[Rfam]
RNA sequence: UGGCGAUGAAGAUAAAACAAAAGGCUUGUUUCUCAACAACAUUCGCAGUGGCCGCCUAAGUGCUUUCGCCUUUCGCCGGGCUUGAGAGCUUAUGCUGUUUUUCUAUCCUUCCUUGGAUGUCUGAGUCA
Numbered sequence: 001u002g003g004c005g006a007u008g009a010a011g012a013u014a015a016a017a018c019a020a021a022a023g024g025c026u027u028g029u030u031u032c033u034c035a036a037c038a039a040c041a042u043u044c045g046c047a048g049u050g051g052c053c054g055c056c057u058a059a060g061u062g063c064u065u066u067c068g069c070c071u072u073u074c075g076c077c078g079g080g081c082u083u084g085a086g087a088g089c090u091u092a093u094g095c096u097g098u099u100u101u102u103c104u105a106u107c108c109u110u111c112c113u114u115g116g117a118u119g120u121c122u123g124a125g126u127c128a
Stems, first nucleotide, its partner, number of pairs: 001128004062089006

This 128-nucleotide RNA belongs to the Rfam family "Small nucleolar RNA SNORD14". The literature on the family includes a 1996 paper in Nucleic Acids Res by Samarsky et al., "An essential domain in Saccharomyces cerevisiae U14 snoRNA is absent in vertebrates, but conserved in other yeasts". It is annotated as a C/D-box small nucleolar RNA. Pairs were carried over by alignment from the consensus structure, which was predicted with PFOLD.